[Rfam]
RNA sequence: UGUGGAAAAAGGCAAAUCCGGUGAAAACUGGAGACGCAAAAACACAGGUCUAAGGAGUAAUAUCUAUGACGGCUGGUUUACCCAA
Numbered sequence: 001u002g003u004g005g006a007a008a009a010a011g012g013c014a015a016a017u018c019c020g021g022u023g024a025a026a027a028c029u030g031g032a033g034a035c036g037c038a039a040a041a042a043c044a045c046a047g048g049u050c051u052a053a054g055g056a057g058u059a060a061u062a063u064c065u066a067u068g069a070c071g072g073c074u075g076g077u078u079u080a081c082c083c084a085a
Base pairs, nucleotide, nucleotide: 012037013036017032018031019030020029021028022027040079041078042077043076045075046074047073048070049069050068055064056063